RNA: Bacillaceae-1 RNA
RNA sequence: UAGUAAUGAACAUCGGCGAAAGACGUCACGUCCUCAUGCCUUCGCCGAUGUGACCUACAUCCUGUAGG
Numbered sequence: 001u002a003g004u005a006a007u008g009a010a011c012a013u014c015g016g017c018g019a020a021a022g023a024c025g026u027c028a029c030g031u032c033c034u035c036a037u038g039c040c041u042u043c044g045c046c047g048a049u050g051u052g053a054c055c056u057a058c059a060u061c062c063u064g065u066a067g068g
Stems, first nucleotide, its partner, number of pairs: 011050007025040001027038002054068005